[Rfam]
RNA sequence: CGAGUAAGCCAGACAAUCGCCGCUGAGUAAUUUCAGGGGAGGAAAGUCCGAGCUUCGUAGGGCAGGGUGCUGGGUAACUCCCAGUGGAGGCAACUUUAAGGAUAGUGCAACAGAGAUAUACCGCCAGAAUGAAGUUUUUCUUCAUGAGUUUAGCUUUUAGCUAACUGGUAAGGCUGGAAAGGGGAGGUAAGAGCUCACCAGCGCGUUGGUGACUUCGCGGCUAUGUAAACCCCACCUGAAGCAAGACCGAAUAGAGAGGCAAAUGGGGCUGCCCGUCCCGUCUCCGGGUGUGUCGCUUGAGCUUAUUGGUAACAAUAGGCCUAGAUAGAUGAUUGUCAAAUACAGAACUCGGCUUAUAGACUUAUCUCGUACA
Numbered sequence: 001c002g003a004g005u006a007a008g009c010c011a012g013a014c015a016a017u018c019g020c021c022g023c024u025g026a027g028u029a030a031u032u033u034c035a036g037g038g039g040a041g042g043a044a045a046g047u048c049c050g051a052g053c054u055u056c057g058u059a060g061g062g063c064a065g066g067g068u069g070c071u072g073g074g075u076a077a078c079u080c081c082c083a084g085u086g087g088a089g090g091c092a093a094c095u096u097u098a099a100g101g102a103u104a105g106u107g108c109a110a111c112a113g114a115g116a117u118a119u120a121c122c123g124c125c126a127g128a129a130u131g132a133a134g135u136u137u138u139u140c141u142u143c144a145u146g147a148g149u150u151u152a153g154c155u156u157u158u159a160g161c162u163a164a165c166u167g168g169u170a171a172g173g174c175u176g177g178a179a180a181g182g183g184g185a186g187g188u189a190a191g192a193g194c195u196c197a198c199c200a201g202c203g204c205g206u207u208g209g210u211g212a213c214u215u216c217g218c219g220g221c222u223a224u225g226u227a228a229a230c231c232c233c234a235c236c237u238g239a240a241g242c243a244a245g246a247c248c249g250a251a252u253a254g255a256g257a258g259g260c261a262a263a264u265g266g267g268g269c270u271g272c273c274c275g276u277c278c279c280g281u282c283u284c285c286g287g288g289u290g291u292g293u294c295g296c297u298u299g300a301g302c303u304u305a306u307u308g309g310u311a312a313c314a315a316u317a318g319g320c321c322u323a324g325a326u327a328g329a330u331g332a333u334u335g336u337c338a339a340a341u342a343c344a345g346a347a348c349u350c351g352g353c354u355u356a357u358a359g360a361c362u363u364a365u366c367u368c369g370u371a372c373a
Stems, first nucleotide, its partner, number of pairs: 001369004005364004010359001011357001012337007020039002023036005044355003048352005053241004060274004065237005070084005085099001086097004100232002105230002107226003121173002123169005131161001181199002184196003201221001202219004208213001245294003256284005265279005301320008

Shown here is a 373-nucleotide sequence from Clostridium frigidicarnis, a member of the family "Bacterial RNase P class A". Ribonuclease P (RNase P) is a ubiquitous endoribonuclease, found in archaea, bacteria and eukarya as well as chloroplasts and mitochondria. Its best characterised activity is the generation of mature 5'-ends of tRNAs by cleaving the 5'-leader elements of precursor-tRNAs. Cellular RNase Ps are ribonucleoproteins. RNA from bacterial RNase Ps retains its catalytic activity in the absence of the protein subunit, i.e. it is a ribozyme. Rfam classes the family as a ribozyme. The match comes from Rfam's covariance-model search (287 bits).